Shown here is a 67-nucleotide sequence, a member of the family "tRNA". The sequence is in the family's curated seed alignment. Its family is annotated with triplet codon-amino acid adaptor activity in the Gene Ontology.
RNA sequence: CAAGGAAUAGUUUAUGUAGAAUUCCAGCUUUGGGUGUUGGUGGUGAGGUUUAAUGUCUCUUCCUUGA
Numbered sequence: 001c002a003a004g005g006a007a008u009a010g011u012u013u014a015u016g017u018a019g020a021a022u023u024c025c026a027g028c029u030u031u032g033g034g035u036g037u038u039g040g041u042g043g044u045g046a047g048g049u050u051u052a053a054u055g056u057c058u059c060u061u062c063c064u065u066g067a
Base pairs, nucleotide, nucleotide: 001066002065003064004063005062006061007060010022011021012020013019024040025039026038027037028036045059046058047057048056049055